The record is an 80-nucleotide RNA sequence from Hordeum vulgare, which matches "Small nucleolar RNA Z155" in Rfam. The base pairs follow the family's consensus structure. The match comes from Rfam's covariance-model search (64 bits).
RNA sequence: AGUUGAUGUGAUGAUAAUCUUUCACAGAAAAUCAUAUCUAGUGUUUGGCCAAACUACAAACUACAAUUAUCUAAUCGUCU
Numbered sequence: 001a002g003u004u005g006a007u008g009u010g011a012u013g014a015u016a017a018u019c020u021u022u023c024a025c026a027g028a029a030a031a032u033c034a035u036a037u038c039u040a041g042u043g044u045u046u047g048g049c050c051a052a053a054c055u056a057c058a059a060a061c062u063a064c065a066a067u068u069a070u071c072u073a074a075u076c077g078u079c080u
Base pairs, nucleotide, nucleotide: 001080002079004077005076006075